The record is a 69-nucleotide RNA sequence from Pseudooceanicola atlanticus, which matches "L2-Alphaproteobacteria ribosomal protein leader" in Rfam. The organism belongs to Pseudooceanicola, within Bacteria. It is one of the family's seed sequences. Pairs were carried over by alignment from the consensus structure, which is taken from published work. Rfam classes the family as a cis-regulatory leader.
RNA sequence: GGUCACCUUCGGGGGGCCUCACACAUAGCCGGGCGCUCACGCCUGGCACUGCUAAACGGAAGACAGAAA
Numbered sequence: 001g002g003u004c005a006c007c008u009u010c011g012g013g014g015g016g017c018c019u020c021a022c023a024c025a026u027a028g029c030c031g032g033g034c035g036c037u038c039a040c041g042c043c044u045g046g047c048a049c050u051g052c053u054a055a056a057c058g059g060a061a062g063a064c065a066g067a068a069a
Base pairs, nucleotide, nucleotide: 001018002017003016004015006014007013008012028047029046030045031044032043033042034041